[Rfam]
RNA sequence: UUGUGCUAGGCGGGGAGUUAGCGGUGCCCUGUACUCGCAAUCCGCUUCAGCGAGGUCAAAUUCCCGUCCUGAGGUCCGAAGGUGCUGGAAUCGACUUUGUCUCUGCAGUGUUUGAGCGCGAUGGUCUCUAUGCGACGGCGUUCAUCUGAACCGGGUCAGGCCAGGAAUGGAGCAGCCCUAAGGAUGUGAUGUCGGGUGCCGUAGAAUCGCCGUCCGUGAGCUGACGAGCAAAGUAUCACCAGAUUUACCUGACGAUCGAAGGCGGGUGCACAA
Numbered sequence: 001u002u003g004u005g006c007u008a009g010g011c012g013g014g015g016a017g018u019u020a021g022c023g024g025u026g027c028c029c030u031g032u033a034c035u036c037g038c039a040a041u042c043c044g045c046u047u048c049a050g051c052g053a054g055g056u057c058a059a060a061u062u063c064c065c066g067u068c069c070u071g072a073g074g075u076c077c078g079a080a081g082g083u084g085c086u087g088g089a090a091u092c093g094a095c096u097u098u099g100u101c102u103c104u105g106c107a108g109u110g111u112u113u114g115a116g117c118g119c120g121a122u123g124g125u126c127u128c129u130a131u132g133c134g135a136c137g138g139c140g141u142u143c144a145u146c147u148g149a150a151c152c153g154g155g156u157c158a159g160g161c162c163a164g165g166a167a168u169g170g171a172g173c174a175g176c177c178c179u180a181a182g183g184a185u186g187u188g189a190u191g192u193c194g195g196g197u198g199c200c201g202u203a204g205a206a207u208c209g210c211c212g213u214c215c216g217u218g219a220g221c222u223g224a225c226g227a228g229c230a231a232a233g234u235a236u237c238a239c240c241a242g243a244u245u246u247a248c249c250u251g252a253c254g255a256u257c258g259a260a261g262g263c264g265g266g267u268g269c270a271c272a273a
Base pairs, nucleotide, nucleotide: 001273002272003271004270005269006268009057010056011055012030013029014028015027017025018024019023034054035053036052037051038050063266064265065264066263068262069261070260073257074256075255076254080250081249082248083247084246085242086241087240088239093237094236096233097232098231101228104226105225107222108221109220116217117216118215120214121213122212123211124210125209127205128204129203130202131201132200133196136194137193138192139191140190143186144185145184146183147182153178154177155176156175161170162169163168
RNA: Bacterial large signal recognition particle RNA